[Rfam]
RNA sequence: GGGCGGUUGCUGAAAUUGGUAGACAGGACAGACUUAGGAUCUGUUGGUGCAAACCGUGAGAGUUCGAGUCUCUCACCGCCCA
Numbered sequence: 001g002g003g004c005g006g007u008u009g010c011u012g013a014a015a016u017u018g019g020u021a022g023a024c025a026g027g028a029c030a031g032a033c034u035u036a037g038g039a040u041c042u043g044u045u046g047g048u049g050c051a052a053a054c055c056g057u058g059a060g061a062g063u064u065c066g067a068g069u070c071u072c073u074c075a076c077c078g079c080c081c082a
Stems, first nucleotide, its partner, number of pairs: 001081007010026003028044005058074005

A member of the RNA family "tRNA" from Thermosporothrix hazakensis, 82 nucleotides long. From the family's description: Transfer RNA (tRNA) molecules are approximately 80 nucleotides in length. It scores 54 bits against the family's covariance model. Its family is annotated with triplet codon-amino acid adaptor activity in the Gene Ontology. NCBI's taxonomy places the organism under Bacteria, Bacillati, Chloroflexota, Ktedonobacteria, Thermosporothrix.